[Rfam]
RNA sequence: UACAGUUUGUGAUGAUCUAAUCUAAGCAAUGGGAAUCUCUCUGAAAAAGGCUGAGGAGGACUCUUGCACUGAAACAGUA
Numbered sequence: 001u002a003c004a005g006u007u008u009g010u011g012a013u014g015a016u017c018u019a020a021u022c023u024a025a026g027c028a029a030u031g032g033g034a035a036u037c038u039c040u041c042u043g044a045a046a047a048a049g050g051c052u053g054a055g056g057a058g059g060a061c062u063c064u065u066g067c068a069c070u071g072a073a074a075c076a077g078u079a
Stems, first nucleotide, its partner, number of pairs: 001079003005075003